[Rfam]
RNA sequence: ACGCGUUAUAAAGCAAAUUCCCGAUGGGAGGGUGGUUAACACCCGCUGCCUUGUAACCGCACAUUCAGUUAUUGAAGAUAUGGGGGAAUUAUCAAAAUG
Numbered sequence: 001a002c003g004c005g006u007u008a009u010a011a012a013g014c015a016a017a018u019u020c021c022c023g024a025u026g027g028g029a030g031g032g033u034g035g036u037u038a039a040c041a042c043c044c045g046c047u048g049c050c051u052u053g054u055a056a057c058c059g060c061a062c063a064u065u066c067a068g069u070u071a072u073u074g075a076a077g078a079u080a081u082g083g084g085g086g087a088a089u090u091a092u093c094a095a096a097a098u099g
Stems, first nucleotide, its partner, number of pairs: 018088005026051003030044005057083002
The family of this 99-nucleotide RNA from Limosilactobacillus ingluviei is "SAM-III riboswitch aptamer (SMK box)". On this family, see Fuchs et al., Proc Natl Acad Sci U S A 2007: "S-adenosylmethionine directly inhibits binding of 30S ribosomal subunits to the SMK box translational riboswitch RNA". The organism belongs to Limosilactobacillus, within Bacteria.